Shown here is a 444-nucleotide sequence from Nostocales cyanobacterium LEGE 11386, a member of the family "Bacterial RNase P class A". Pairs were carried over by alignment from the consensus structure, which is taken from published work. Lineage of the source: Bacteria > Bacillati > Cyanobacteriota > Cyanophyceae > Nostocales. By type it is a ribozyme.
RNA sequence: AGAGUAGGCGCAGGCGGUUGCAGAUCAGUCAUGCGACUGGUUUGAGGAAAGUCCGGGCUCCCGAAAGACCAAACUUGCUGGAUAACGUCCAGUGCGAGCGAUCGUGAGGAUAGUGCCACAGAAAGAUACCGCCAAAGUUAGUGCUGAGCAAUGAGUGCUGAGUGCUGAGUAAAGACAACUCAGCACUCAGCACUCAGCACUCAAAACUAUUUUGGUAAGGGUGCAAAGGUGCGGUAAGAGCGCACCAGCAGCGUCGAGAGGCGCUGGCUCGGUAAACCCCGGUUGGGAGCAAGGCGAAAGGAGACUAUGGUUGGUCUUUUACCAGUUUCCUAAAGUAGAGCCGCUAGAGGCGUUUGGUAACAAACGUCCCAGAUAGAUAACUGCCCUCAAAAGUGCUUUUAAACACUUUUGAGAACAGAACCCGGCUUAUGUCCGACUCUCUCC
Numbered sequence: 001a002g003a004g005u006a007g008g009c010g011c012a013g014g015c016g017g018u019u020g021c022a023g024a025u026c027a028g029u030c031a032u033g034c035g036a037c038u039g040g041u042u043u044g045a046g047g048a049a050a051g052u053c054c055g056g057g058c059u060c061c062c063g064a065a066a067g068a069c070c071a072a073a074c075u076u077g078c079u080g081g082a083u084a085a086c087g088u089c090c091a092g093u094g095c096g097a098g099c100g101a102u103c104g105u106g107a108g109g110a111u112a113g114u115g116c117c118a119c120a121g122a123a124a125g126a127u128a129c130c131g132c133c134a135a136a137g138u139u140a141g142u143g144c145u146g147a148g149c150a151a152u153g154a155g156u157g158c159u160g161a162g163u164g165c166u167g168a169g170u171a172a173a174g175a176c177a178a179c180u181c182a183g184c185a186c187u188c189a190g191c192a193c194u195c196a197g198c199a200c201u202c203a204a205a206a207c208u209a210u211u212u213u214g215g216u217a218a219g220g221g222u223g224c225a226a227a228g229g230u231g232c233g234g235u236a237a238g239a240g241c242g243c244a245c246c247a248g249c250a251g252c253g254u255c256g257a258g259a260g261g262c263g264c265u266g267g268c269u270c271g272g273u274a275a276a277c278c279c280c281g282g283u284u285g286g287g288a289g290c291a292a293g294g295c296g297a298a299a300g301g302a303g304a305c306u307a308u309g310g311u312u313g314g315u316c317u318u319u320u321a322c323c324a325g326u327u328u329c330c331u332a333a334a335g336u337a338g339a340g341c342c343g344c345u346a347g348a349g350g351c352g353u354u355u356g357g358u359a360a361c362a363a364a365c366g367u368c369c370c371a372g373a374u375a376g377a378u379a380a381c382u383g384c385c386c387u388c389a390a391a392a393g394u395g396c397u398u399u400u401a402a403a404c405a406c407u408u409u410u411g412a413g414a415a416c417a418g419a420a421c422c423c424g425g426c427u428u429a430u431g432u433c434c435g436a437c438u439c440u441c442u443c444c
Stems, first nucleotide, its partner, number of pairs: 001440005007434002010432003013385007021044009049428003053425005058289004067318002072284003076281002078092005093107001094105004108279002113277002115273003129220002131216008228246006248268001249266007293342003300330006309323003313319001349368008